[Rfam]
RNA sequence: GCACCUGAAUCUUUGCUGUCCCUUGCUGUGCAGUGCAGGUCUGGGGACAGUUGGUGCUACAGCACAGCAGUGGAAAUCCAGAUGGGUUGCUUUCCACUGCCUCGGGAUUCAUUGCUACACCUCUGCAACCCUU
Numbered sequence: 001g002c003a004c005c006u007g008a009a010u011c012u013u014u015g016c017u018g019u020c021c022c023u024u025g026c027u028g029u030g031c032a033g034u035g036c037a038g039g040u041c042u043g044g045g046g047a048c049a050g051u052u053g054g055u056g057c058u059a060c061a062g063c064a065c066a067g068c069a070g071u072g073g074a075a076a077u078c079c080a081g082a083u084g085g086g087u088u089g090c091u092u093u094c095c096a097c098u099g100c101c102u103c104g105g106g107a108u109u110c111a112u113u114g115c116u117a118c119a120c121c122u123c124u125g126c127a128a129c130c131c132u133u
Base pairs, nucleotide, nucleotide: 001057002056003055004054005053013047014046016044017043018042021039022038067126068125069124070123072121081113082112083111084110085109086108087107094105095104
Small nucleolar RNA SNORA55: a 133-nucleotide RNA sequence from Eurypyga helias. The base pairs follow the family's consensus structure, which was predicted with PFOLD. Rfam's curators write: ACA55 is a member of the H/ACA class of snoRNA that guide the sites of modification of uridines to pseudouridines. NCBI's taxonomy places the organism under Eukaryota, Teleostomi, Dipnotetrapodomorpha, Saurischia, Eurypyga. By type it is an H/ACA-box small nucleolar RNA.